[Rfam]
RNA sequence: GAGUGUAUCCGAUUUGGCGAGUCUAACUCGAGUAUCGAGGGAGGCGCAGGGAAACCGAUACGGCCGCAGCAUUGCGAGGGCCACCGUGUGCAAGCGCGGGGAGCCAACCGGAUACGACCCGAAACCAGGCGAUCUAUGCGCGAACAGGGUGAAGCGUGGCGAAAGCCACGUGGAGGCCCGUUAGAGUUGGUGUCCUACAAUACCCUCUCGUGAUUCGCGUAUAGGGGUGAAAGGCCCAUCGAGCCUGGCAACAGCUGGUU
Numbered sequence: 001g002a003g004u005g006u007a008u009c010c011g012a013u014u015u016g017g018c019g020a021g022u023c024u025a026a027c028u029c030g031a032g033u034a035u036c037g038a039g040g041g042a043g044g045c046g047c048a049g050g051g052a053a054a055c056c057g058a059u060a061c062g063g064c065c066g067c068a069g070c071a072u073u074g075c076g077a078g079g080g081c082c083a084c085c086g087u088g089u090g091c092a093a094g095c096g097c098g099g100g101g102a103g104c105c106a107a108c109c110g111g112a113u114a115c116g117a118c119c120c121g122a123a124a125c126c127a128g129g130c131g132a133u134c135u136a137u138g139c140g141c142g143a144a145c146a147g148g149g150u151g152a153a154g155c156g157u158g159g160c161g162a163a164a165g166c167c168a169c170g171u172g173g174a175g176g177c178c179c180g181u182u183a184g185a186g187u188u189g190g191u192g193u194c195c196u197a198c199a200a201u202a203c204c205c206u207c208u209c210g211u212g213a214u215u216c217g218c219g220u221a222u223a224g225g226g227g228u229g230a231a232a233g234g235c236c237c238a239u240c241g242a243g244c245c246u247g248g249c250a251a252c253a254g255c256u257g258g259u260u
Stems, first nucleotide, its partner, number of pairs: 005115007013107001015106004021045004027039004049056002062082004069075002085098004118258002121255001125248006134224011145212001147179004154171007184209003189205002192203002226236003
Archaeal large subunit ribosomal RNA: a 260-nucleotide part of an RNA from Halopenitus malekzadehii. The base pairs follow the family's consensus structure, which is taken from published work. It scores 2762 bits against the family's covariance model. Rfam links the family to the GO terms ribosome and structural constituent of ribosome. NCBI's taxonomy places the organism under Archaea, Methanobacteriati, Halobacteriales, Haloferacaceae, Halopenitus.